[Rfam]
RNA sequence: AGUCACAUAAUAACAUACAUUCGUAUAACCUCACGAUAGUCAGAAUGAACAGGGUGGGGGUUUCUACGGGAAGCCUUAACUUCCUUGCUACGAAUAUAGGAUCAUCUUCA
Numbered sequence: 001a002g003u004c005a006c007a008u009a010a011u012a013a014c015a016u017a018c019a020u021u022c023g024u025a026u027a028a029c030c031u032c033a034c035g036a037u038a039g040u041c042a043g044a045a046u047g048a049a050c051a052g053g054g055u056g057g058g059g060g061u062u063u064c065u066a067c068g069g070g071a072a073g074c075c076u077u078a079a080c081u082u083c084c085u086u087g088c089u090a091c092g093a094a095u096a097u098a099g100g101a102u103c104a105u106c107u108u109c110a
Stems, first nucleotide, its partner, number of pairs: 019095007029059006068085006
RNA: Purine riboswitch aptamer
Organism: Paenibacillus baekrokdamisoli